[Rfam]
RNA sequence: CAGGUGAGUAGAGGUGCGAUAUUUAACAGUCUUUAGUGGAGCGUGAGAAGCAUUGAUGCUAAGGAGAAGGAAAUAUCGCCGAAGUGGUUAAUAUUCUCAGUAUUAACUGCUGGGUCUGUAGUUAAGAGCUACAGAACUGUCUCAAUAAACUUCCAUGGUUAUUGGGUUGUGCUAUCUCGUUA
Numbered sequence: 001c002a003g004g005u006g007a008g009u010a011g012a013g014g015u016g017c018g019a020u021a022u023u024u025a026a027c028a029g030u031c032u033u034u035a036g037u038g039g040a041g042c043g044u045g046a047g048a049a050g051c052a053u054u055g056a057u058g059c060u061a062a063g064g065a066g067a068a069g070g071a072a073a074u075a076u077c078g079c080c081g082a083a084g085u086g087g088u089u090a091a092u093a094u095u096c097u098c099a100g101u102a103u104u105a106a107c108u109g110c111u112g113g114g115u116c117u118g119u120a121g122u123u124a125a126g127a128g129c130u131a132c133a134g135a136a137c138u139g140u141c142u143c144a145a146u147a148a149a150c151u152u153c154c155a156u157g158g159u160u161a162u163u164g165g166g167u168u169g170u171g172c173u174a175u176c177u178c179g180u181u182a
Base pairs, nucleotide, nucleotide: 006177008175009174010173011172016079017078018077019076020075021074022073023072024071031064032063033062034061035060036059037058038057083111084110085109086108087107088106089105090104091103092102093101094100112138113137115135116134117133118132119131120130121129122128141166142165143164144163145162146161147160148159
The record is a 182-nucleotide RNA sequence from Gottschalkia acidurici, which matches "Lysine riboswitch aptamer" in Rfam. It scores 109 bits against the family's covariance model.